A member of the RNA family "mir-233 microRNA precursor family" from Caenorhabditis japonica, 71 nucleotides long.
The family's consensus secondary structure was predicted with RNAalifold.
Lineage of the source: Eukaryota > Metazoa > Nematoda > Rhabditidae > Caenorhabditis.
RNA sequence: UUCCGUCUCGCCCAUCCCUUUGCUCCAUAUCGAUUCAUGAUUAUUGAGCAAUGCGCAUGUGCGGGACGGAU
Numbered sequence: 001u002u003c004c005g006u007c008u009c010g011c012c013c014a015u016c017c018c019u020u021u022g023c024u025c026c027a028u029a030u031c032g033a034u035u036c037a038u039g040a041u042u043a044u045u046g047a048g049c050a051a052u053g054c055g056c057a058u059g060u061g062c063g064g065g066a067c068g069g070a071u
Base pairs, nucleotide, nucleotide: 002070003069004068005067006066007065008064009063010062011061013059014058015057017055018053020051021050022049023048024047025046027044028043029042030040031039
Dot-bracket structure: .((((((((((.(((.((.((((((.(((((.......)).))).)))))).).).))).)))))))))).
The literature on the family includes a 2009 paper in Genome Res by de Wit et al., "Repertoire and evolution of miRNA genes in four divergent nematode species".